RNA sequence: GGUCUUUGUGUUUCCCAUUCAUUCCUGUCCAAAAUGAAUGUGGUGUCAAAAAAGGCAAACAGGAAUUCUUGCUGAAACUGCUGUAAGGAGCUGGUUGUUUAACUUUCUCCUCCCUGUUUUUGCUAGGACAAGU
Numbered sequence: 001g002g003u004c005u006u007u008g009u010g011u012u013u014c015c016c017a018u019u020c021a022u023u024c025c026u027g028u029c030c031a032a033a034a035u036g037a038a039u040g041u042g043g044u045g046u047c048a049a050a051a052a053a054g055g056c057a058a059a060c061a062g063g064a065a066u067u068c069u070u071g072c073u074g075a076a077a078c079u080g081c082u083g084u085a086a087g088g089a090g091c092u093g094g095u096u097g098u099u100u101a102a103c104u105u106u107c108u109c110c111u112c113c114c115u116g117u118u119u120u121u122g123c124u125a126g127g128a129c130a131a132g133u
Base pairs, nucleotide, nucleotide: 002056003055004054005053006052007051009048010047012045014043015042016040017039018038019037020036021035022034023033068126069125071123074120075119076118077117078116083115087111088110089108090107093103

Shown here is a 133-nucleotide RNA sequence from Formicarius rufipectus, a member of the family "Small nucleolar RNA SNORA13". NCBI's taxonomy places the organism under Eukaryota, Bilateria, Deuterostomia, Tetrapoda, Formicarius. From the family's description: ACA13 is a member of the H/ACA class of snoRNA that guide the sites of modification of uridines to pseudouridines. The family's RNA type in Rfam is H/ACA-box small nucleolar RNA.